Rfam assigns this 91-nucleotide sequence from Thalictrum thalictroides to the family "Small nucleolar RNA snoR109". Lineage of the source: Eukaryota > Streptophytina > Embryophyta > Mesangiospermae > Thalictrum. The family's consensus secondary structure was predicted with WAR. The literature on the family includes a 2002 paper in Curr Biol by Marker et al., "Experimental RNomics: identification of 140 candidates for small non-messenger RNAs in the plant Arabidopsis thaliana". A search with the family's covariance model found it, with a score of 96 bits. It is annotated as an H/ACA-box small nucleolar RNA. Rfam 15.1 lists 680 matches to the family in 220 species.

[Rfam]
Nucleotides: 091
Base pairs, nucleotide, nucleotide: 025085026084027083028082029081030080031079032078037072038071039070041068042067043066044065045063046062047061048060
Number, partner (000 for none) and nucleotide at each position: 001000u002000g003000g004000c005000u006000g007000u008000a009000g010000c011000u012000a013000a014000a015000u016000u017000g018000a019000u020000u021000u022000c023000a024000a025085a026084a027083g028082a029081a030080g031079u032078u033000u034000a035000c036000u037072g038071g039070c040000c041068g042067g043066u044065u045063g046062u047061u048060g049000u050000g051000a052000a053000u054000u055000u056000c057000a058000g059000u060048c061047a062046a063045c064000a065044a066043a067042u068041c069000u070039g071038c072037u073000u074000a075000c076000c077000g078032a079031a080030c081029u082028u083027c084026u085025u086000a087000u088000a089000u090000u091000u